The record is a 45-nucleotide RNA sequence, which matches "L31-Actinobacteria ribosomal protein leader" in Rfam. Its Rfam clan is "Ribosomal Protein L31 Leader clan".
RNA sequence: UCGGUUCCGGUUCACGCCCUCGAUUUCGACGGCGACCCGGCGGCC
Numbered sequence: 001u002c003g004g005u006u007c008c009g010g011u012u013c014a015c016g017c018c019c020u021c022g023a024u025u026u027c028g029a030c031g032g033c034g035a036c037c038c039g040g041c042g043g044c045c
Stems, first nucleotide, its partner, number of pairs: 003045003007040004015034004020029003